[Rfam]
Nucleotides: 083
Stems, first nucleotide, its partner, number of pairs: 012037002017032006040077004045073003048068003055062002
Number, partner (000 for none) and nucleotide at each position: 001000a002000u003000c004000a005000g006000u007000u008000a009000a010000u011000g012037g013036u014000a015000a016000a017032c018031c019030u020029g021028u022027u023000g024000a025000a026000a027022a028021a029020u030019a031018g032017g033000g034000a035000c036013a037012c038000a039000a040077a041076g042075u043074c044000a045073c046072a047071g048068a049067u050066c051000u052000a053000a054000g055062g056061u057000g058000a059000a060000a061056a062055c063000u064000a065000u066050g067049a068048u069000g070000g071047c072046u073045g074043g075042a076041c077040u078000g079000c080000c081000g082000g083000g
The record is an 83-nucleotide RNA sequence from Metabacillus sediminilitoris, which matches "c-di-GMP-I riboswitch aptamer" in Rfam. NCBI's taxonomy places the organism under Bacteria, Bacillota, Bacilli, Bacillaceae, Metabacillus. GEMM was predicted in a large-scale screen for bacterial structured RNA regulatory elements. A search with the family's covariance model found it, with a score of 75 bits.